[Rfam]
RNA sequence: CAGUGAUCGGGUUGCUGGAGAGCCUGGGGCGGUAGCGUG
Numbered sequence: 001c002a003g004u005g006a007u008c009g010g011g012u013u014g015c016u017g018g019a020g021a022g023c024c025u026g027g028g029g030c031g032g033u034a035g036c037g038u039g
Stems, first nucleotide, its partner, number of pairs: 008026005
Dot-bracket structure: .......(((((.........))))).............
The record is a 39-nucleotide RNA from Paramixta manurensis, which matches "JUMPstart RNA" in Rfam. Pairs were carried over by alignment from the consensus structure, which is taken from published work. Lineage of the source: Bacteria > Pseudomonadota > Enterobacterales > Erwiniaceae > Paramixta. Rfam 15.1 lists 288 matches to the family in 230 species. The match comes from Rfam's covariance-model search (46 bits). By type it is a cis-regulatory element.